[Rfam]
RNA sequence: AAUUUUUUUUUCGAUAUAAAACACUCAUGUCGAUAAAAAAAAAUGAUUUGAUCCUGUU
Numbered sequence: 001a002a003u004u005u006u007u008u009u010u011u012c013g014a015u016a017u018a019a020a021a022c023a024c025u026c027a028u029g030u031c032g033a034u035a036a037a038a039a040a041a042a043a044u045g046a047u048u049u050g051a052u053c054c055u056g057u058u
Stems, first nucleotide, its partner, number of pairs: 011033007
RNA: Plastid-atpF group II-D1 intron
Organism: Ziziphus jujuba